Description:
The family of this 70-nucleotide sequence from Orthohepacivirus hominis is "Hepatitis C virus stem-loop VII". NCBI's taxonomy places the organism under Viruses, Riboviria, Amarillovirales, Hepaciviridae, Orthohepacivirus. By type it is a cis-regulatory element.
[Rfam]
RNA sequence: UAAGCUUAUAGCUCAAGGGGGUAAGGCCGCUAUAUGCGGCUUAUACCUCUUCAAUUGGGCUGUACGCACA
Numbered sequence: 001u002a003a004g005c006u007u008a009u010a011g012c013u014c015a016a017g018g019g020g021g022u023a024a025g026g027c028c029g030c031u032a033u034a035u036g037c038g039g040c041u042u043a044u045a046c047c048u049c050u051u052c053a054a055u056u057g058g059g060c061u062g063u064a065c066g067c068a069c070a
Stems, first nucleotide, its partner, number of pairs: 007064010017050005026040005